The family of this 80-nucleotide sequence from Medicago truncatula is "MIR5269 microRNA precursor family".
A search with the family's covariance model found it, with a score of 64 bits.
Its family is annotated with miRNA-mediated post-transcriptional gene silencing and RISC complex in the Gene Ontology.
Pairs were carried over by alignment from the consensus structure, which was predicted with RNAalifold.
The family has 2 seed sequences and 389 matches in Rfam 15.1.
RNA sequence: UUGGAUUAAAUCAUUGUGGGUCAUACACUUUAAAAAUUGAACUCACAUGAAAUGGUGGGACAUACAUUUAUUUUAUUCAA
Numbered sequence: 001u002u003g004g005a006u007u008a009a010a011u012c013a014u015u016g017u018g019g020g021u022c023a024u025a026c027a028c029u030u031u032a033a034a035a036a037u038u039g040a041a042c043u044c045a046c047a048u049g050a051a052a053u054g055g056u057g058g059g060a061c062a063u064a065c066a067u068u069u070a071u072u073u074u075a076u077u078c079a080a
Stems, first nucleotide, its partner, number of pairs: 001080006008073004013068001015066004024057002026054002029051004